The family of this 94-nucleotide RNA sequence from Leptobrachium leishanense is "mir-1 microRNA precursor family". On this family, see Lee and Ambros, Science 2001: "An extensive class of small RNAs in Caenorhabditis elegans". Rfam 15.1 lists 4,474 matches to the family in 965 species. From the family's description: This family represents the microRNA (miRNA) mir-1 family. miRNAs are transcribed as ~70nt precursors (modelled here) and subsequently processed by the Dicer enzyme to give a ~22nt product. Rfam links the family to the GO terms miRNA-mediated post-transcriptional gene silencing and RISC complex. Lineage of the source: Eukaryota > Chordata > Tetrapoda > Megophryidae > Leptobrachium. A search with the family's covariance model found it, with a score of 47 bits.

RNA sequence: UUUCAAGCAAUAUGCUUCUUUAUGGUGCAGAUGGUAUACAUAUUUACAGUAUACAUUCCACCAUCUGCACCAUAAAGAAGCAUAUUGCUUGAAA
Numbered sequence: 001u002u003u004c005a006a007g008c009a010a011u012a013u014g015c016u017u018c019u020u021u022a023u024g025g026u027g028c029a030g031a032u033g034g035u036a037u038a039c040a041u042a043u044u045u046a047c048a049g050u051a052u053a054c055a056u057u058c059c060a061c062c063a064u065c066u067g068c069a070c071c072a073u074a075a076a077g078a079a080g081c082a083u084a085u086u087g088c089u090u091g092a093a094a
Stems, first nucleotide, its partner, number of pairs: 007088019027068009